This 77-nucleotide sequence from Microcebus murinus belongs to the Rfam family "mir-320 microRNA precursor family". The family's consensus secondary structure was predicted with RNAalifold.
[Rfam]
RNA sequence: AGCAAAAAAGGCCUUAUCUUCCCGGUUUCUUCCUGGAGUCGGGAAAAGCUGGGUUGAGAGGCUGCAAAAUAAAUAAA
Numbered sequence: 001a002g003c004a005a006a007a008a009a010g011g012c013c014u015u016a017u018c019u020u021c022c023c024g025g026u027u028u029c030u031u032c033c034u035g036g037a038g039u040c041g042g043g044a045a046a047a048g049c050u051g052g053g054u055u056g057a058g059a060g061g062c063u064g065c066a067a068a069a070u071a072a073a074u075a076a077a
Stems, first nucleotide, its partner, number of pairs: 014060002017057002021053005030045006